Ribosomal protein L13 leader: a 57-nucleotide RNA from Cytobacillus horneckiae.
It is annotated as a cis-regulatory leader.
It scores 46 bits against the family's covariance model.
About the family: This family is a putative r-protein leader autoregulatory structure found in B. subtilis and other low-GC Gram-positive bacteria. It is located in the 5' untranslated regions of mRNAs encoding the L13-S9 (rplM-rpsI) ribosomal protein operon.
Rfam links the family to the GO term regulation of gene expression.
The organism belongs to Cytobacillus, within Bacteria.
On this family, see Zengel and Lindahl, Prog Nucleic Acid Res Mol Biol 1994: "Diverse mechanisms for regulating ribosomal protein synthesis in Escherichia coli".
[Rfam]
RNA sequence: GGUAUUAUUAUUAAAACCACGAUAAGCCCCGGAAUCUUAUUGUGUAUUAUAUAUGAA
Numbered sequence: 001g002g003u004a005u006u007a008u009u010a011u012u013a014a015a016a017c018c019a020c021g022a023u024a025a026g027c028c029c030c031g032g033a034a035u036c037u038u039a040u041u042g043u044g045u046a047u048u049a050u051a052u053a054u055g056a057a
Base pairs, nucleotide, nucleotide: 008057009056012053018044019043020042021041022040023039024038025037026036